[Rfam]
RNA sequence: AAGAUACAAGAGGGGUGCCUUUCCGACUGCGAGAAACGGCUGAGAUCAUACCCUAUGAACUUGAUGCGGUCAAUACCGCCGAAAGGACUUGUUCAUAGACCGUA
Numbered sequence: 001a002a003g004a005u006a007c008a009a010g011a012g013g014g015g016u017g018c019c020u021u022u023c024c025g026a027c028u029g030c031g032a033g034a035a036a037c038g039g040c041u042g043a044g045a046u047c048a049u050a051c052c053c054u055a056u057g058a059a060c061u062u063g064a065u066g067c068g069g070u071c072a073a074u075a076c077c078g079c080c081g082a083a084a085g086g087a088c089u090u091g092u093u094c095a096u097a098g099a100c101c102g103u104a
Base pairs, nucleotide, nucleotide: 006092007091008090009089010088011054012053013052014051016048017040018039019038021036060085061084062083066079067078068077069076

The family of this 104-nucleotide RNA sequence from Alistipes sp. CAG:268 is "TPP riboswitch aptamer (THI element)". NCBI's taxonomy places the organism under Bacteria, Pseudomonadati, Bacteroidota, Rikenellaceae, Alistipes. A search with the family's covariance model found it, with a score of 69 bits. Pairs were carried over by alignment from the consensus structure, which is taken from published work.